[Rfam]
RNA sequence: UAUAUAGUUGGUGCAAAAGUAAUUGCAGUUUUUGCCAUUAAAAGUAAUGGCAAAAACUGCAAUUACUUUUGCAUCAUCUAUAUA
Numbered sequence: 001u002a003u004a005u006a007g008u009u010g011g012u013g014c015a016a017a018a019g020u021a022a023u024u025g026c027a028g029u030u031u032u033u034g035c036c037a038u039u040a041a042a043a044g045u046a047a048u049g050g051c052a053a054a055a056a057c058u059g060c061a062a063u064u065a066c067u068u069u070u071g072c073a074u075c076a077u078c079u080a081u082a083u084a
Stems, first nucleotide, its partner, number of pairs: 001084007009076032
Shown here is an 84-nucleotide RNA from Gorilla gorilla, a member of the family "mir-548 microRNA precursor family".
NCBI's taxonomy places the organism under Eukaryota, Metazoa, Sarcopterygii, Hominidae, Gorilla gorilla.
A search with the family's covariance model found it, with a score of 94 bits.